[Rfam]
RNA sequence: CCGUAACCCUGAUGGAAGUGAUAUCCUUUUUUGUUUUCAACAAUGUAUGAAGAAACAAAAAAGAUUUAACGUACAGCAGGAAAAAGG
Numbered sequence: 001c002c003g004u005a006a007c008c009c010u011g012a013u014g015g016a017a018g019u020g021a022u023a024u025c026c027u028u029u030u031u032u033g034u035u036u037u038c039a040a041c042a043a044u045g046u047a048u049g050a051a052g053a054a055a056c057a058a059a060a061a062a063g064a065u066u067u068a069a070c071g072u073a074c075a076g077c078a079g080g081a082a083a084a085a086g087g
Base pairs, nucleotide, nucleotide: 009079010078011077013075014074018070019069023065024064025063029060030059031058032057033056034055035054036053